The family of this 127-nucleotide RNA sequence from Microtus ochrogaster is "Small nucleolar RNA SNORA72". A reference for the family is Ganot et al. (1997), "The family of box ACA small nucleolar RNAs is defined by an evolutionarily conserved secondary structure and ubiquitous sequence elements essential for RNA accumulation", Genes Dev. Rfam's curators write: U72 is a member of the H/ACA class of snoRNAs. The base pairs follow the family's consensus structure, which was predicted with PFOLD. It scores 70 bits against the family's covariance model.
[Rfam]
RNA sequence: CUGAUAUUCUCCUUCUGCUGAUUAUGUGAUAAUCAGUACAGGGUAAACAAAGUCUAUAGUAAGAUCACAUGCAUGGCCCCAGACUUGUUCUAUCCCUAGGCCUGAUUUUUAAAUGGUGGUGACAAAC
Numbered sequence: 001c002u003g004a005u006a007u008u009c010u011c012c013u014u015c016u017g018c019u020g021a022u023u024a025u026g027u028g029a030u031a032a033u034c035a036g037u038a039c040a041g042g043g044u045a046a047a048c049a050a051a052g053u054c055u056a057u058a059g060u061a062a063g064a065u066c067a068c069a070u071g072c073a074u075g076g077c078c079c080c081a082g083a084c085u086u087g088u089u090c091u092a093u094c095c096c097u098a099g100g101c102c103u104g105a106u107u108u109u110u111a112a113a114u115g116g117u118g119g120u121g122a123c124a125a126a127c
Stems, first nucleotide, its partner, number of pairs: 002052001013041002016038008064120004070115001080104003084100001085098001087096001